This 57-nucleotide RNA from Robertmurraya massiliosenegalensis belongs to the Rfam family "Streptococcus sRNA SpF59 (ldcC RNA)". Lineage of the source: Bacteria > Bacillati > Bacillaceae > Robertmurraya > Robertmurraya massiliosenegalensis. It is one of the family's seed sequences.
[Rfam]
Nucleotides: 057
Base pairs, nucleotide, nucleotide: 001049002048003047004046005045006026007025008024009023010022011021012020013019
Number, partner (000 for none) and nucleotide at each position: 001049u002048g003047a004046c005045c006026a007025c008024u009023u010022u011021u012020u013019c014000u015000u016000u017000u018000g019013g020012a021011a022010a023009a024008a025007g026006u027000u028000a029000a030000g031000g032000c033000a034000u035000c036000g037000g038000u039000u040000c041000g042000c043000c044000g045005g046004g047003u048002c049001a050000a051000a052000u053000g054000c055000c056000g057000a